Overview
Shown here is a 78-nucleotide RNA sequence from Drosophila pseudoobscura, a member of the family "mir-968 microRNA precursor family". Its family is annotated with miRNA-mediated post-transcriptional gene silencing and RISC complex in the Gene Ontology. It is one of the family's seed sequences.

RNA sequence: AGCUUCCUUAAGUAGUAUCCAUUAAGAGGUCGUCAUCUAGCUAAAAUCGACCUUUUGAUGUACUACUUUAAAAAAGCA
Numbered sequence: 001a002g003c004u005u006c007c008u009u010a011a012g013u014a015g016u017a018u019c020c021a022u023u024a025a026g027a028g029g030u031c032g033u034c035a036u037c038u039a040g041c042u043a044a045a046a047u048c049g050a051c052c053u054u055u056u057g058a059u060g061u062a063c064u065a066c067u068u069u070a071a072a073a074a075a076g077c078a
Stems, first nucleotide, its partner, number of pairs: 004074002008070001010068008020060013